About this RNA: This 147-nucleotide sequence from Phyllostomus discolor belongs to the Rfam family "Small nucleolar RNA SNORA12". It scores 108 bits against the family's covariance model. Lineage of the source: Eukaryota > Bilateria > Vertebrata > Phyllostominae > Phyllostomus.
RNA sequence: CAUUGCAGUGGUUUUCUCUGUGACACAUUUGUUAAGUGUUCGAAUGGGCCUGACUCUGCCACAUAUAUUAUACAGGAGCUGGCAAAGGCUUGAUGACAAAGACCGCUCUCUACCCGUUCCCACUUAUGGAAAUUGGCCCUGACGGGU
Numbered sequence: 001c002a003u004u005g006c007a008g009u010g011g012u013u014u015u016c017u018c019u020g021u022g023a024c025a026c027a028u029u030u031g032u033u034a035a036g037u038g039u040u041c042g043a044a045u046g047g048g049c050c051u052g053a054c055u056c057u058g059c060c061a062c063a064u065a066u067a068u069u070a071u072a073c074a075g076g077a078g079c080u081g082g083c084a085a086a087g088g089c090u091u092g093a094u095g096a097c098a099a100a101g102a103c104c105g106c107u108c109u110c111u112a113c114c115c116g117u118u119c120c121c122a123c124u125u126a127u128g129g130a131a132a133u134u135g136g137c138c139c140u141g142a143c144g145g146g147u
Base pairs, nucleotide, nucleotide: 005062008059009058010057011056022050024048026046027045028044029043030042031041075140076139078137079136080135081090082089083088107130108129109128
Annotation:
Its family is annotated with RNA processing and nucleolus in the Gene Ontology. The literature on the family includes a 2005 paper in Nucleic Acids Res by Gu et al., "A novel experimental approach for systematic identification of box H/ACA snoRNAs from eukaryotes". Pairs were carried over by alignment from the consensus structure, which was predicted with RNAalifold. U108 belongs to the H/ACA family of snoRNAs. The sequence is predicted to guide the pseudouridylation of the U372 residue in the 28S rRNA subunit. Rfam 15.1 lists 571 matches to the family in 378 species.